Rfam assigns this 139-nucleotide RNA sequence from Microcebus murinus to the family "Small nucleolar RNA SNORA8".
Its Rfam clan is "SNORA8 clan".
Pairs were carried over by alignment from the consensus structure, which was predicted with RNAfold.
About the family: ACA8 is a member of the H/ACA class of snoRNA that guide the sites of modification of uridines to pseudouridines.
Its family is annotated with nucleolus and RNA processing in the Gene Ontology.
[Rfam]
RNA sequence: UGCACAGCAUGGUAACUGCACUCAGCAGUUUAUUCCUGCUGGUGUGUUCAAAGGUCAAUGCCAUCAAAAUUCAGUAUCUGGAAUUGUUGGUUUCCUUGGCUUUGUGCAUGUUAAACCUGGUAUUUCUACAGUUUUCUCA
Numbered sequence: 001u002g003c004a005c006a007g008c009a010u011g012g013u014a015a016c017u018g019c020a021c022u023c024a025g026c027a028g029u030u031u032a033u034u035c036c037u038g039c040u041g042g043u044g045u046g047u048u049c050a051a052a053g054g055u056c057a058a059u060g061c062c063a064u065c066a067a068a069a070u071u072c073a074g075u076a077u078c079u080g081g082a083a084u085u086g087u088u089g090g091u092u093u094c095c096u097u098g099g100c101u102u103u104g105u106g107c108a109u110g111u112u113a114a115a116c117c118u119g120g121u122a123u124u125u126c127u128a129c130a131g132u133u134u135u136c137u138c139a
Stems, first nucleotide, its partner, number of pairs: 002061003007056001014055001016053002018047004023042001024040005064128001067125004071120004081107001083105002